[Rfam]
RNA sequence: CAAUAGUCGUGUUUUUCUCAAGGGGGGUCGGCGCAUUCCGUCGUUGUAGUGUCUUGCGAUAUGCUAUAACGAAAGGGGAUGAUGCCUCUGUCUGUUUUUGAGACAAUGGUUUUAAUGAUCGCAUUUGCAACACUCGUUGUAACGAUCGUCGACCAUAAAAAAUAGACCUCCCUUGGAUUAUCAGCCGGGCGAGGUCUAUUCUUGUCUGCGCUGACCCCUCUUGAAGGGGAAGCGACCCAUUGCUGACCGAAGAUAUUGCAGUAUCUUCG
Number, nucleotide and partner (000 for none) at each position: 001c242002a241003a240004u239005a000006g236007u235008c234009g000010u232011g000012u000013u000014u000015u214016u213017c000018u176019c175020a174021a173022g172023g171024g170025g000026g167027g000028u165029c000030g000031g000032c000033g000034c081035a080036u000037u079038c078039c077040g000041u000042c000043g000044u000045u000046g000047u000048a000049g000050u000051g000052u000053c000054u000055u000056g000057c000058g000059a000060u000061a000062u000063g000064c000065u000066a000067u000068a000069a000070c000071g000072a000073a000074a000075g000076g000077g039078g038079a037080u035081g034082a000083u000084g000085c000086c000087u000088c000089u000090g146091u145092c000093u144094g143095u142096u141097u000098u000099u000100g000101a000102g000103a000104c117105a116106a000107u000108g000109g000110u000111u000112u000113u000114a000115a000116u105117g104118a000119u000120c000121g000122c000123a000124u000125u000126u000127g000128c000129a000130a000131c000132a000133c000134u000135c000136g000137u000138u000139g000140u000141a096142a095143c094144g093145a091146u090147c000148g000149u000150c000151g000152a000153c000154c000155a000156u000157a000158a000159a000160a000161a000162a000163u000164a000165g028166a000167c026168c000169u000170c024171c023172c022173u021174u020175g019176g018177a000178u000179u000180a000181u000182c000183a202184g201185c000186c000187g000188g000189g000190c000191g000192a000193g000194g000195u000196c000197u000198a000199u000200u000201c184202u183203u000204g000205u000206c000207u000208g000209c000210g000211c000212u000213g016214a015215c229216c228217c227218c226219u000220c000221u000222u000223g000224a000225a000226g218227g217228g216229g215230a000231a000232g010233c000234g008235a007236c006237c000238c000239a004240u003241u002242g001243c000244u000245g000246a000247c000248c269249g268250a267251a266252g265253a264254u263255a262256u261257u000258g000259c000260a000261g256262u255263a254264u253265c252266u251267u250268c249269g248

Rfam assigns this 269-nucleotide sequence from Lentibacillus populi to the family "BsrG". Rfam describes the family as follows. bsrE, bsrG and bsrH pair through intermolecular interactions with antisense sRNAs. By type it is a small RNA. Its family is annotated with toxin activity and autolysis in the Gene Ontology.